[Rfam]
RNA sequence: ACCUUCUUGUUAUAGCACUGUGCUAAAAUUACAGAAACCAAGGUGAGCUUUGGUUUCUGUAGUAAUGCUAGCAGAGUACAUGCAAGAAGAAGAAGAACCGCACUGGAUCAAAAAAGACUAGGGUGGACCUCUUUCUUAAUGUCCGGUGUCCUGUGUCUUGAGAUUUAGUGCAACAGUU
Numbered sequence: 001a002c003c004u005u006c007u008u009g010u011u012a013u014a015g016c017a018c019u020g021u022g023c024u025a026a027a028a029u030u031a032c033a034g035a036a037a038c039c040a041a042g043g044u045g046a047g048c049u050u051u052g053g054u055u056u057c058u059g060u061a062g063u064a065a066u067g068c069u070a071g072c073a074g075a076g077u078a079c080a081u082g083c084a085a086g087a088a089g090a091a092g093a094a095g096a097a098c099c100g101c102a103c104u105g106g107a108u109c110a111a112a113a114a115a116g117a118c119u120a121g122g123g124u125g126g127a128c129c130u131c132u133u134u135c136u137u138a139a140u141g142u143c144c145g146g147u148g149u150c151c152u153g154u155g156u157c158u159u160g161a162g163a164u165u166u167a168g169u170g171c172a173a174c175a176g177u178u
Stems, first nucleotide, its partner, number of pairs: 018076002021073005028066004034057002037054007100171008120149001122147001124145004